Record summary
A member of the RNA family "pan motif" from Halalkalibacter suaedae, 90 nucleotides long.

RNA sequence: UGGGCGGUAUCUUAUAAGAACUGCACCAGAAAUAGAAAGCUAAAUUUAAUGAUAAUGAUCUGCCUUGAUCGAAAAGACUAGGACAGAGGA
Numbered sequence: 001u002g003g004g005c006g007g008u009a010u011c012u013u014a015u016a017a018g019a020a021c022u023g024c025a026c027c028a029g030a031a032a033u034a035g036a037a038a039g040c041u042a043a044a045u046u047u048a049a050u051g052a053u054a055a056u057g058a059u060c061u062g063c064c065u066u067g068a069u070c071g072a073a074a075a076g077a078c079u080a081g082g083a084c085a086g087a088g089g090a
Stems, first nucleotide, its partner, number of pairs: 001028003004024005010019002060086003063082003067078001069077002